Source information
A member of the RNA family "L31-Actinobacteria ribosomal protein leader" from Stackebrandtia nassauensis, 43 nucleotides long. Pairs were carried over by alignment from the consensus structure, which is taken from published work. The family's RNA type in Rfam is cis-regulatory leader. Its Rfam clan is "Ribosomal Protein L31 Leader clan". Taxonomically the source falls in Stackebrandtia nassauensis (Bacteria, Actinomycetes, Glycomycetaceae, Stackebrandtia). The literature on the family includes a 2020 paper in BMC Microbiol by Eckert and Weinberg, "Discovery of 20 novel ribosomal leader candidates in bacteria and archaea".

RNA sequence: CCGGUACCGGUUCACGCUGCGCGUGCGCGGCGACCCGGCGACC
Numbered sequence: 001c002c003g004g005u006a007c008c009g010g011u012u013c014a015c016g017c018u019g020c021g022c023g024u025g026c027g028c029g030g031c032g033a034c035c036c037g038g039c040g041a042c043c
Stems, first nucleotide, its partner, number of pairs: 003043003007038004015032007